A member of the RNA family "Streptomyces RNA 3920" from Streptomyces zagrosensis, 125 nucleotides long. Taxonomically the source falls in Streptomyces (Bacteria, Bacillati, Actinomycetes, Kitasatosporales). Rfam classes the family as a small RNA.
[Rfam]
RNA sequence: GAUAGGUUCAUGCCGCUAGGGUGAUUGGACACUGACGCAGAGUCAACUAGCCUUAUGCGCGCGGUUCGGUGAGCGUUGAACCGUGGCUGGCAGAGCCACGAGGGGGGAGGUUCUGCCAGCCUGCU
Numbered sequence: 001g002a003u004a005g006g007u008u009c010a011u012g013c014c015g016c017u018a019g020g021g022u023g024a025u026u027g028g029a030c031a032c033u034g035a036c037g038c039a040g041a042g043u044c045a046a047c048u049a050g051c052c053u054u055a056u057g058c059g060c061g062c063g064g065u066u067c068g069g070u071g072a073g074c075g076u077u078g079a080a081c082c083g084u085g086g087c088u089g090g091c092a093g094a095g096c097c098a099c100g101a102g103g104g105g106g107g108a109g110g111u112u113c114u115g116c117c118a119g120c121c122u123g124c125u
Stems, first nucleotide, its partner, number of pairs: 001014001003012002015051004021032003033045004058075003062071002076083001085121013099106001
Dot-bracket structure: (.((......)).)((((..(((......)))((((.....))))..))))......(((.((......)).)))(......).(((((((((((((.(......)..)))))))))))))....